[Rfam]
RNA sequence: CCGUCCCACUCCACGGAACGUCCACCGGUUCCCCACCGGUGGACCGAUACCCUGAACGCGUGUCCGGGCCGCGCUCCGUCGCGAUCCGGGCAAAGCCGACAGCCGUCGCAUCUCCAGGGAGCAGUCUUAUG
Numbered sequence: 001c002c003g004u005c006c007c008a009c010u011c012c013a014c015g016g017a018a019c020g021u022c023c024a025c026c027g028g029u030u031c032c033c034c035a036c037c038g039g040u041g042g043a044c045c046g047a048u049a050c051c052c053u054g055a056a057c058g059c060g061u062g063u064c065c066g067g068g069c070c071g072c073g074c075u076c077c078g079u080c081g082c083g084a085u086c087c088g089g090g091c092a093a094a095g096c097c098g099a100c101a102g103c104c105g106u107c108g109c110a111u112c113u114c115c116a117g118g119g120a121g122c123a124g125u126c127u128u129a130u131g
Base pairs, nucleotide, nucleotide: 061092062091063090064089066087067086068085095109096108098107099106100105
RNA: Streptomyces-metH RNA